[Rfam]
RNA: Neisseria metabolic switch regulator b (RcoF1/NgncR163)
Organism: Neisseria animalis
RNA sequence: CCAUUGAGUUGCACCAAGCAGCUUGAUUUUUUCUCCUCUAUUUCUCCUUUGUAGACUUGGCGCAUAUCCGAAACGAUAUGCGCGUUUUU
Numbered sequence: 001c002c003a004u005u006g007a008g009u010u011g012c013a014c015c016a017a018g019c020a021g022c023u024u025g026a027u028u029u030u031u032u033c034u035c036c037u038c039u040a041u042u043u044c045u046c047c048u049u050u051g052u053a054g055a056c057u058u059g060g061c062g063c064a065u066a067u068c069c070g071a072a073a074c075g076a077u078a079u080g081c082g083c084g085u086u087u088u089u
Stems, first nucleotide, its partner, number of pairs: 003027009037055005060083009